c-di-AMP riboswitch aptamer (ydaO/yuaA leader): a 160-nucleotide RNA sequence from Streptomyces solincola. The match comes from Rfam's covariance-model search (72 bits). Lineage of the source: Bacteria > Actinomycetota > Kitasatosporales > Streptomycetaceae > Streptomyces.
[Rfam]
Nucleotides: 160
Stems, first nucleotide, its partner, number of pairs: 011145001013143002019032002034140006044078005079125003087102004105119004
Number, partner (000 for none) and nucleotide at each position: 001000g002000a003000c004000a005000c006000g007000c008000a009000u010000c011145c012000a013143c014142u015000g016000a017000a018000c019032c020031c021000a022000c023000g024000u025000a026000c027000g028000g029000c030000a031020g032019g033000a034140g035139c036138g037137g038136g039135g040000g041000a042000c043000c044078c045077a046076g047075g048074u049000a050000a051000g052000c053000g054000c055000c056000g057000g058000a059000c060000c061000g062000c063000a064000c065000a066000g067000c068000g069000g070000c071000a072000c073000g074048g075047c076046u077045u078044g079125g080124g081123g082000u083000g084000a085000a086000g087102u088101c089100g090099c091000g092000c093000a094000u095000u096000u097000c098000c099090g100089c101088g102087a103000c104000c105119g106118g107117g108116c109000a110000a111000c112000u113000c114000c115000a116108g117107c118106c119105c120000g121000a122000a123081c124080c125079c126000g127000a128000c129000a130000g131000c132000u133000c134000a135039c136038c137037u138036c139035g140034c141000a142014g143013g144000c145011g146000c147000c148000g149000g150000a151000g152000a153000g154000g155000a156000a157000a158000g159000c160000a